[Rfam]
RNA sequence: AUCCGCGCGAGGGAGACGCUGCCCCCCAGAUCAUCGGGGUCAGGGCCGAAGGAGCAACCGCCCCGGUAAACUCUCAGGCAAAGGGACCUUGGCGGACCA
Numbered sequence: 001a002u003c004c005g006c007g008c009g010a011g012g013g014a015g016a017c018g019c020u021g022c023c024c025c026c027c028a029g030a031u032c033a034u035c036g037g038g039g040u041c042a043g044g045g046c047c048g049a050a051g052g053a054g055c056a057a058c059c060g061c062c063c064c065g066g067u068a069a070a071c072u073c074u075c076a077g078g079c080a081a082a083g084g085g086a087c088c089u090u091g092g093c094g095g096a097c098c099a
Stems, first nucleotide, its partner, number of pairs: 004094003008091005019043003045079003048075002052073003058066002

This 99-nucleotide sequence from Roseicyclus elongatus belongs to the Rfam family "Glycine riboswitch aptamer". For this family Rfam cites "A glycine-dependent riboswitch that uses cooperative binding to control gene expression" (Mandal et al., Science, 2004). This family represents the bacterial glycine riboswitch. Glycine riboswitches usually consist of two metabolite-binding aptamers domains with similar structures in tandem. The aptamers cooperatively bind glycine to regulate the expression of downstream genes. The match comes from Rfam's covariance-model search (46 bits). The organism belongs to Roseicyclus elongatus, within Bacteria.